RNA sequence: CGCACGCGGGUUUGCGGUCGACGGGGAGACAUCCCGGCGCUCGCUCCGGUGUUCCCAUUCCGGGAACGACGCCCGCGGAGGCUCAACCGGAAAAGGAGAACGGC
Numbered sequence: 001c002g003c004a005c006g007c008g009g010g011u012u013u014g015c016g017g018u019c020g021a022c023g024g025g026g027a028g029a030c031a032u033c034c035c036g037g038c039g040c041u042c043g044c045u046c047c048g049g050u051g052u053u054c055c056c057a058u059u060c061c062g063g064g065a066a067c068g069a070c071g072c073c074c075g076c077g078g079a080g081g082c083u084c085a086a087c088c089g090g091a092a093a094a095g096g097a098g099a100a101c102g103g104c
Stems, first nucleotide, its partner, number of pairs: 001080001003078001005077006014044002022036002025034001051067006
Shown here is a 104-nucleotide RNA sequence, a member of the family "rpsB sRNA". Pairs were carried over by alignment from the consensus structure, which is taken from published work. The family has 4 seed sequences and 245 matches in Rfam 15.1. The family's RNA type in Rfam is small RNA.